Shown here is a 132-nucleotide sequence from Moschus moschiferus, a member of the family "Small Cajal body specific RNA 11". By type it is a small Cajal body RNA. The literature on the family includes a 2002 paper in EMBO J by Darzacq et al., "Cajal body-specific small nuclear RNAs: a novel class of 2'-O-methylation and pseudouridylation guide RNAs". scaRNAs are a specific class of small nuclear RNAs which localise to the Cajal bodies and guide the modification of RNA polymerase II transcribed spliceosomal RNAs U1, U2, U4, U5 and U12. ACA57 belongs to the H/ACA box class of guide RNAs as it has the predicted hairpin-hinge-hairpin-tail structure, conserved H/ACA-box motifs and is found associated with GAR1. ACA57 is predicted to guide the pseudouridylation of the U5 spliceosomal RNA at position U43. Pairs were carried over by alignment from the consensus structure, which was predicted with RNAalifold.

RNA sequence: UGGUCCUGGUUUAUGCUUUCUCUACUUCCCUGUGCUCAGUUUUAACCAGGGAGUCUGUCAGGACACACAGCAAUCUCCCUCUCGUAGUUUAGGAGGGCUGUCCUAAGAAUAGGGCUGCUGUGAGGGGACAGU
Numbered sequence: 001u002g003g004u005c006c007u008g009g010u011u012u013a014u015g016c017u018u019u020c021u022c023u024a025c026u027u028c029c030c031u032g033u034g035c036u037c038a039g040u041u042u043u044a045a046c047c048a049g050g051g052a053g054u055c056u057g058u059c060a061g062g063a064c065a066c067a068c069a070g071c072a073a074u075c076u077c078c079c080u081c082u083c084g085u086a087g088u089u090u091a092g093g094a095g096g097g098c099u100g101u102c103c104u105a106a107g108a109a110u111a112g113g114g115c116u117g118c119u120g121u122g123a124g125g126g127g128a129c130a131g132u
Base pairs, nucleotide, nucleotide: 003064004063005062006061007060008059011057024054025053026052028050029049032046033045078127079126080125081124082123083122096119097118098117100115101114102113103112104111105110
Dot-bracket structure: ..((((((..(............(((.((..((...........))..)).)))..).)))))).............((((((............(((.((((((....)))))).)))..)))))).....